RNA sequence: CUAUCUGGGUCUGGGGGAACGUCGCUAAUAGCAGCGAAAUUCACCCCAAUUACGACAGGCACAGACCCGAUAAUCAUACUCACUGAUGACGUCAAAAGGGUUUCUAUGACACAACAGCCGCAAGCUAAAUACCGU
Numbered sequence: 001c002u003a004u005c006u007g008g009g010u011c012u013g014g015g016g017g018a019a020c021g022u023c024g025c026u027a028a029u030a031g032c033a034g035c036g037a038a039a040u041u042c043a044c045c046c047c048a049a050u051u052a053c054g055a056c057a058g059g060c061a062c063a064g065a066c067c068c069g070a071u072a073a074u075c076a077u078a079c080u081c082a083c084u085g086a087u088g089a090c091g092u093c094a095a096a097a098g099g100g101u102u103u104c105u106a107u108g109a110c111a112c113a114a115c116a117g118c119c120g121c122a123a124g125c126u127a128a129a130u131a132c133c134g135u
Stems, first nucleotide, its partner, number of pairs: 004065004009060005014047004022037005083117003087113002091110004098105002
Background: A member of the RNA family "PepN 5' UTR thermometer" from Yersinia pseudotuberculosis, 135 nucleotides long. A reference for the family is Righetti et al. (2016), "Temperature-responsive in vitro RNA structurome of Yersinia pseudotuberculosis", Proc Natl Acad Sci U S A. Gene Ontology terms of the family: regulation of translation and response to temperature stimulus. By type it is an RNA thermoregulator. Rfam's curators write: Position upstream of pepN gene responsible for amino acid processing.